[Rfam]
RNA: malK-I RNA
RNA sequence: CAAGGCAGGCGCGUCUACUCCACAAAAUAGACGAUGACCGGCCAGAAAAGGAGGAUAAACACAUCCACAGGGCUUGCGGUGCGGCAGUGUGGAGACCUGUCGUAAUGCGUCGCGCGUCAGCGGACGCGAGGUACGGGCAAGCGGAGGCUUCCGUGCCAGAGCCGGUUGCAUGGCA
Numbered sequence: 001c002a003a004g005g006c007a008g009g010c011g012c013g014u015c016u017a018c019u020c021c022a023c024a025a026a027a028u029a030g031a032c033g034a035u036g037a038c039c040g041g042c043c044a045g046a047a048a049a050g051g052a053g054g055a056u057a058a059a060c061a062c063a064u065c066c067a068c069a070g071g072g073c074u075u076g077c078g079g080u081g082c083g084g085c086a087g088u089g090u091g092g093a094g095a096c097c098u099g100u101c102g103u104a105a106u107g108c109g110u111c112g113c114g115c116g117u118c119a120g121c122g123g124a125c126g127c128g129a130g131g132u133a134c135g136g137g138c139a140a141g142c143g144g145a146g147g148c149u150u151c152c153g154u155g156c157c158a159g160a161g162c163c164g165g166u167u168g169c170a171u172g173g174c175a
Stems, first nucleotide, its partner, number of pairs: 006040001008038001010036001012033006065079002068076001071163005080104008089096002107127005113122003130157008140149003